[Rfam]
RNA sequence: AUACGAUAAAUGCAAACCCUGGGUGAUCAGGGGACGAAAAGAAAAGGGUCUUUAACAAACACGGAUUGUAUGUAGAGACGCUCCCGAUGGGACGUCUCAUCCCAAAGACAGCCUUACAAAAGACAGCCUUAUUGCCGAA
Numbered sequence: 001a002u003a004c005g006a007u008a009a010a011u012g013c014a015a016a017c018c019c020u021g022g023g024u025g026a027u028c029a030g031g032g033g034a035c036g037a038a039a040a041g042a043a044a045a046g047g048g049u050c051u052u053u054a055a056c057a058a059a060c061a062c063g064g065a066u067u068g069u070a071u072g073u074a075g076a077g078a079c080g081c082u083c084c085c086g087a088u089g090g091g092a093c094g095u096c097u098c099a100u101c102c103c104a105a106a107g108a109c110a111g112c113c114u115u116a117c118a119a120a121a122g123a124c125a126g127c128c129u130u131a132u133u134g135c136c137g138a139a
Stems, first nucleotide, its partner, number of pairs: 013036001017032006040133002043130001045129003048124006
c-di-GMP-I riboswitch aptamer: a 139-nucleotide RNA sequence from Candidatus Brocadia sinica. Lineage of the source: Bacteria > Candidatus Brocadiia > Candidatus Brocadiales > Candidatus Brocadiaceae > Candidatus Brocadia sinica. Its Rfam clan is "c-di-GMP_I riboswitch clan".